RNA sequence: GGUAAACCCUGUUAGGCGAGGCUCCUGUACGAAUACAGGCCACUGCCCGGAAAUGUCGAAAGACACCAAUGGGUGAGCAGGUAUUACCGGCUUAAGGUUUUACCUAACGUGGCUGGCGCUGCCAAAGUCGUACAGUGCCAAAGCUCAACGAGGAGGGUGCAGU
Numbered sequence: 001g002g003u004a005a006a007c008c009c010u011g012u013u014a015g016g017c018g019a020g021g022c023u024c025c026u027g028u029a030c031g032a033a034u035a036c037a038g039g040c041c042a043c044u045g046c047c048c049g050g051a052a053a054u055g056u057c058g059a060a061a062g063a064c065a066c067c068a069a070u071g072g073g074u075g076a077g078c079a080g081g082u083a084u085u086a087c088c089g090g091c092u093u094a095a096g097g098u099u100u101u102a103c104c105u106a107a108c109g110u111g112g113c114u115g116g117c118g119c120u121g122c123c124a125a126a127g128u129c130g131u132a133c134a135g136u137g138c139c140a141a142a143g144c145u146c147a148a149c150g151a152g153g154a155g156g157g158u159g160c161a162g163u
Stems, first nucleotide, its partner, number of pairs: 006158005011149002013095001015145003020139003025135008039113005045074005054065004080104004086098003115123003
Notes: M-box riboswitch aptamer (ykoK leader): a 163-nucleotide RNA sequence from Gelria sp. Kuro-4. It scores 156 bits against the family's covariance model. Pairs were carried over by alignment from the consensus structure. Rfam's curators write: M-box riboswitch, also know as ykoK leader is described as a metaloregulatory RNA that sense divalent metals and function as a genetic control element of genes related to divalent metal transport in bacteria. It was first reported upstream of the B.subtilis ykoK gene and genes with related functions in other bacteria. On this family, see Barrick et al., Proc Natl Acad Sci U S A 2004: "New RNA motifs suggest an expanded scope for riboswitches in bacterial genetic control".